[Rfam]
SAM riboswitch aptamer (S box leader): a 106-nucleotide sequence from Sporocytophaga myxococcoides.

RNA sequence: GAUUUAUAAAGAAGAGGGGAGAGAAAAGGCUCUUUGAACCUCUAGCAACCUAUCCUUUUGAGAUAAGGUGCUAAUUCCUUUCCUAAGAUAUUAGGGCAUAUAAAUU
Dot-bracket structure: ((((((((....(((((...(((..[[[[)))......)))))((((.((((((.......)))).))))))...(]]]].(((((....)))))..)))))))))
The match comes from Rfam's covariance-model search (80 bits). Gene Ontology term of the family: regulation of gene expression. The source organism's lineage runs through Bacteria, Pseudomonadati, Bacteroidota, Cytophagia and Sporocytophaga. Rfam describes the family as follows. The SAM riboswitch is found upstream of a number of genes which code for proteins involved in methionine or cysteine biosynthesis in Gram-positive bacteria. Pairs were carried over by alignment from the consensus structure, which is taken from published work.